[Rfam]
RNA: Small nucleolar RNA Z105
Organism: Lupinus albus
RNA sequence: UUUGCAUGGUGAUGAAUCUUGAUUUUUUUCAUAUGAUUAGUCAUGUGAUGAAAUACAAUCCUCCUACUCAUUCUGA
Dot-bracket structure: .....((((................((.......................))...............)))).....